Rfam assigns this 85-nucleotide sequence from Liparis tanakae to the family "Small nucleolar RNA SNORD60". The organism belongs to Liparis, within Eukaryota. Its Rfam clan is "SNORD60 clan". Gene Ontology terms of the family: nucleolus and RNA processing. The family's consensus secondary structure was predicted with PFOLD.
Nucleotides: 085
Base pairs, nucleotide, nucleotide: 001084002083003082004081049057050056051055
Number, partner (000 for none) and nucleotide at each position: 001084a002083g003082c004081c005000u006000g007000u008000g009000a010000u011000g012000a013000u014000c015000a016000a017000a018000u019000c020000a021000a022000a023000u024000a025000a026000c027000u028000u029000u030000u031000c032000u033000g034000a035000c036000a037000u038000c039000u040000a041000c042000u043000a044000u045000g046000a047000g048000a049057g050056c051055u052000u053000u054000c055051a056050g057049c058000u059000c060000c061000u062000g063000a064000u065000u066000a067000u068000a069000u070000a071000u072000u073000u074000a075000u076000u077000c078000u079000g080000a081004g082003g083002c084001u085000c
Rfam classes the family as a C/D-box small nucleolar RNA.